[Rfam]
RNA sequence: CUGGGGAUGCACAACUGGCGCAGGUGGGCAACCACCGGGGAGUGCGAGCAGAGUAGACAUCGACCGCCUGGGUGUCCUCU
Numbered sequence: 001c002u003g004g005g006g007a008u009g010c011a012c013a014a015c016u017g018g019c020g021c022a023g024g025u026g027g028g029c030a031a032c033c034a035c036c037g038g039g040g041a042g043u044g045c046g047a048g049c050a051g052a053g054u055a056g057a058c059a060u061c062g063a064c065c066g067c068c069u070g071g072g073u074g075u076c077c078u079c080u
Base pairs, nucleotide, nucleotide: 005049008046009045010044011043012042015039016038017068018067019066020065024035025034026033027032057075058074059073060072061071
Notes
Shown here is an 80-nucleotide sequence from Rhodococcus sp. SMB37, a member of the family "ZMP/ZTP riboswitch aptamer (pfl RNA motif)". NCBI's taxonomy places the organism under Bacteria, Bacillati, Actinomycetes, Mycobacteriales, Rhodococcus.